[Rfam]
RNA sequence: GAUUUAGAAGGAUAAGUAUAAGACCUUAAUUCUACAAUC
Numbered sequence: 001g002a003u004u005u006a007g008a009a010g011g012a013u014a015a016g017u018a019u020a021a022g023a024c025c026u027u028a029a030u031u032c033u034a035c036a037a038u039c
Base pairs, nucleotide, nucleotide: 001039002038003037004036006033007032008027009026010025011024

A member of the RNA family "S4-Flavobacteria ribosomal protein leader", 39 nucleotides long. Its Rfam clan is "Ribosomal Protein S4 Leader clan". The base pairs follow the family's consensus structure, which is taken from published work.